The record is a 121-nucleotide sequence from Shewanella woodyi, which matches "c-di-GMP-I riboswitch aptamer" in Rfam. The family's consensus secondary structure is taken from published work. Gene Ontology term of the family: cyclic-di-GMP binding.
[Rfam]
RNA sequence: AAUGUACAAAGGCAAACCAAUCGAAAGGUUGGGACGCAAAGCUUCCGGUCUAAGGGGAUAGUGUUUGAGAGGGUCGCACUCUUAACGUUAUUUUGGUACCUAUGAUAGCGGGGAUGUUACA
Numbered sequence: 001a002a003u004g005u006a007c008a009a010a011g012g013c014a015a016a017c018c019a020a021u022c023g024a025a026a027g028g029u030u031g032g033g034a035c036g037c038a039a040a041g042c043u044u045c046c047g048g049u050c051u052a053a054g055g056g057g058a059u060a061g062u063g064u065u066u067g068a069g070a071g072g073g074u075c076g077c078a079c080u081c082u083u084a085a086c087g088u089u090a091u092u093u094u095g096g097u098a099c100c101u102a103u104g105a106u107a108g109c110g111g112g113g114a115u116g117u118u119a120c121a
Stems, first nucleotide, its partner, number of pairs: 012037002017032006040115001042113002045111003048106003055100002058097001
Dot-bracket structure: ...........((...((((((....))))))...))..(.((.((((((....((.(......................................).))...)))..))))).)......